Shown here is an 87-nucleotide sequence from Gossypium hirsutum, a member of the family "MIR7486 microRNA precursor family". Rfam 15.1 lists 10,132 matches to the family in 36 species. The base pairs follow the family's consensus structure, which was predicted with RNAalifold. The match comes from Rfam's covariance-model search (78 bits). Gene Ontology terms of the family: miRNA-mediated post-transcriptional gene silencing and RISC complex.

[Rfam]
RNA sequence: CUCAAGGAAGUGCUUUGUCCACGUGGACAGAAAACGAGUCCUUAAGGGUGCGCUUUAUGUCCACUUAGGCAAAGCGCUUCCUUGAGG
Numbered sequence: 001c002u003c004a005a006g007g008a009a010g011u012g013c014u015u016u017g018u019c020c021a022c023g024u025g026g027a028c029a030g031a032a033a034a035c036g037a038g039u040c041c042u043u044a045a046g047g048g049u050g051c052g053c054u055u056u057a058u059g060u061c062c063a064c065u066u067a068g069g070c071a072a073a074g075c076g077c078u079u080c081c082u083u084g085a086g087g
Base pairs, nucleotide, nucleotide: 001086002085003084004083005082006081007080008079009078010077011076012075013074014073015072016071017070018069019068021066023064024063025062026061027060028059029058031056032055033054035052036051038049040047041046
Dot-bracket structure: (((((((((((((((((((.(.(((((((.(((.((.(.((....)).).)).))).))))))).).))))))))))))))))))).